Notes:
The family of this 249-nucleotide RNA from Naja naja is "Small nucleolar RNA SNORD17". The source organism's lineage runs through Eukaryota, Teleostomi, Squamata, Elapidae and Naja.

RNA sequence: GUGAAGUGAUGAUGAUGUUUUAUCCAUUCUCUGAGUGCCGCUUGCUCUGCCAUUCCUGUCGCGUUGAGACUUCAGCUCUGUGGCCUCGAUGUUCCGUGGCUUCUAAACACCUUCCAGGCUUCCAGUGUUCUACUGGAGGUUGUGGGGAUGUUUGGCUAGCUGCUGACUGGACCUGGGCAGGGGAAGCAGGGCCAGACCCCUUUCCUAUGGGGCCCGACUCAACAAAGAAGAAUGAAACUGUCUGAUCAC
Number, nucleotide and partner (000 for none) at each position: 001g000002u000003g000004a000005a000006g000007u000008g000009a000010u248011g247012a246013u245014g000015a000016u000017g241018u240019u000020u000021u000022a000023u000024c000025c234026a233027u232028u231029c230030u229031c227032u226033g000034a000035g223036u222037g000038c000039c000040g187041c186042u185043u184044g000045c182046u181047c180048u179049g178050c177051c176052a000053u000054u171055c170056c169057u000058g000059u165060c000061g092062c091063g090064u089065u088066g087067a086068g084069a000070c083071u082072u000073c080074a000075g000076c000077u000078c000079u000080g073081u000082g071083g070084c068085c000086u067087c066088g065089a064090u063091g062092u061093u000094c000095c000096g163097u162098g161099g160100c159101u158102u000103c000104u000105a000106a000107a000108c000109a149110c000111c146112u000113u000114c000115c142116a000117g141118g140119c139120u138121u137122c136123c135124a134125g133126u132127g131128u000129u000130c000131u127132a126133c125134u124135g123136g122137a121138g120139g119140u118141u117142g115143u000144g000145g000146g111147g000148a000149u109150g000151u000152u000153u000154g000155g000156c000157u000158a101159g100160c099161u098162g097163c096164u000165g059166a000167c000168u000169g056170g055171a054172c000173c000174u000175g000176g051177g050178c049179a048180g047181g046182g045183g000184a043185a042186g041187c040188a000189g220190g219191g218192c000193c216194a000195g214196a000197c000198c211199c210200c000201u000202u000203u000204c000205c000206u000207a000208u000209g000210g199211g198212g000213c000214c195215c000216g193217a000218c191219u190220c189221a000222a036223c035224a000225a000226a032227g031228a000229a030230g029231a028232a027233u026234g025235a000236a000237a000238c000239u000240g018241u017242c000243u000244g000245a013246u012247c011248a010249c000
Description:
The literature on the family includes a 2001 paper in EMBO J by Huttenhofer et al., "RNomics: an experimental approach that identifies 201 candidates for novel, small, non-messenger RNAs in mouse". From the family's description: The snoRNA HBI-43 belongs to the C/D family of snoRNAs, guiding 2'O-ribose methylation at position U3797 of the 28S rRNA. Pseudouridylation in position U3797 is predicted to be guided by the H/ACA snoRNA ACA48.